[Rfam]
RNA: MIR5387 microRNA precursor family
Organism: Aegilops tauschii
RNA sequence: UCGUGGCACCAACCGGGACUAAAGGCCUUUGGUCCCGGUCGGUGCCACGAACCGGGACUAAAGGCCUUUGGUCCCGGUUGGUGCCACGAA
Number, nucleotide and partner (000 for none) at each position: 001u000002c000003g087004u086005g085006g084007c083008a082009c081010c080011a079012a078013c077014c076015g075016g074017g073018a072019c071020u070021a069022a068023a067024g066025g065026c064027c063028u000029u061030u060031g000032g000033u000034c056035c055036c054037g000038g000039u000040c000041g000042g048043u047044g000045c000046c000047a043048c042049g000050a000051a000052c000053c000054g036055g035056g034057a000058c000059u000060a030061a029062a000063g027064g026065c025066c024067u023068u022069u021070g020071g019072u018073c017074c016075c015076g014077g013078u012079u011080g010081g009082u008083g007084c006085c005086a004087c003088g000089a000090a000